Shown here is an 80-nucleotide sequence from Petromyzon marinus, a member of the family "mir-199 microRNA precursor family". Taxonomically the source falls in Petromyzon (Eukaryota, Chordata, Vertebrata, Petromyzontidae).
RNA sequence: GCCUCGUCUGCCCAGUGUUCUGACUACCUGUUCACGUGACAAGCAAAUGUACAGUAGUCUGCACAUUGGUUAGACUGGGU
Numbered sequence: 001g002c003c004u005c006g007u008c009u010g011c012c013c014a015g016u017g018u019u020c021u022g023a024c025u026a027c028c029u030g031u032u033c034a035c036g037u038g039a040c041a042a043g044c045a046a047a048u049g050u051a052c053a054g055u056a057g058u059c060u061g062c063a064c065a066u067u068g069g070u071u072a073g074a075c076u077g078g079g080u
Stems, first nucleotide, its partner, number of pairs: 012069007020061001022059005028054004033049002